[Rfam]
RNA sequence: AGGUCAUUUCAAAUAGGGAUAAUGGGGCUGUGAAACCAGGAGCUCUUAAUUCUAUGACUAAAGAUUGAAGUUCUCCAGAGGGUGUUAUAGUCACCCAAUAGUACUAAGUUUUUUUAAAAAAAUAUAUUU
Numbered sequence: 001a002g003g004u005c006a007u008u009u010c011a012a013a014u015a016g017g018g019a020u021a022a023u024g025g026g027g028c029u030g031u032g033a034a035a036c037c038a039g040g041a042g043c044u045c046u047u048a049a050u051u052c053u054a055u056g057a058c059u060a061a062a063g064a065u066u067g068a069a070g071u072u073c074u075c076c077a078g079a080g081g082g083u084g085u086u087a088u089a090g091u092c093a094c095c096c097a098a099u100a101g102u103a104c105u106a107a108g109u110u111u112u113u114u115u116a117a118a119a120a121a122a123u124a125u126a127u128u129u
Stems, first nucleotide, its partner, number of pairs: 002059006015046004020041001023039001026037002072122001074120001079115004088106003093102002
Shown here is a 129-nucleotide sequence from Myotis myotis, a member of the family "Small nucleolar RNA SNORA25". ACA25 is a member of the H/ACA class of snoRNA that guide the sites of modification of uridines to pseudouridines. The family has 30 seed sequences and 1,129 matches in Rfam 15.1. Pairs were carried over by alignment from the consensus structure, which was predicted with RNAfold. NCBI's taxonomy places the organism under Eukaryota, Euteleostomi, Tetrapoda, Boreoeutheria, Myotis. Gene Ontology terms of the family: nucleolus and RNA processing.